[Rfam]
RNA: Bacterial RNase P class A
Organism: Bacteroides nordii
RNA sequence: GCAGUUGGCUGGUCUGUCGCGUGUGUUUCGGCACAGGAGGAAAGUCCGGGCAACACAGAGCAUCCCACUUCCUAACAGAAAGCUGUCCGUGAGGGUAGAGUAACGUAGAAGAAAAUAACCGCCUCUCUUUCUUCGGAAAGUAAGGUAAGGGUGAGAAGGUGGAGUAAAAGCCCACCAGCCGCAUGGUGACGUGUCGGGCUGUACGUCUUGGGAGUUGUAAGGUCAUGUAUACCGGCGUUAUGAGAGUUGCUCGCUCCAUGUCGGAGGGUAGACCGCUAAAGUGGCAUGGUGACAUGUCACUCAGAUAAAUGACAGGCACUUGUUUAAUUCAUAAUUAUAAAUUAAAGAUUAUACAAGGACAGAACUCGGCUUACAGGCCGACUGCUUUU
Dot-bracket structure: ((((((((((((((((((.(.(((((....))))).)....[[[.[[[[[((((...[[[[.((((((((.(.....).)))(.((((....)))).)((..(((((...........(((((...(((((....)))))...)))..)).......(((((.........))))).((((((((....)))).))).)..))))))))))))))))...((((.......(((((.......((((.]]]]))))...)))))......))))......((((((((....))))))))..........)))))))...............................................]]]]]]]].).))))))))))....